[Rfam]
RNA sequence: AAAGCAGGCUGCAAUUGCAGUGCCUCAUCCCGUGGGAGUGCUGCCAUGUCCCUGCUGAGAGCAAUGCAGUUAAUGCUGUCUCGGGCUCACCUGUGCCGUGGUGGAGCCGUUUGGUCUUAACGUGUACAAGU
Numbered sequence: 001a002a003a004g005c006a007g008g009c010u011g012c013a014a015u016u017g018c019a020g021u022g023c024c025u026c027a028u029c030c031c032g033u034g035g036g037a038g039u040g041c042u043g044c045c046a047u048g049u050c051c052c053u054g055c056u057g058a059g060a061g062c063a064a065u066g067c068a069g070u071u072a073a074u075g076c077u078g079u080c081u082c083g084g085g086c087u088c089a090c091c092u093g094u095g096c097c098g099u100g101g102u103g104g105a106g107c108c109g110u111u112u113g114g115u116c117u118u119a120a121c122g123u124g125u126a127c128a129a130g131u
Stems, first nucleotide, its partner, number of pairs: 003056006018043006025036002066125003069121005075115001082109003087104005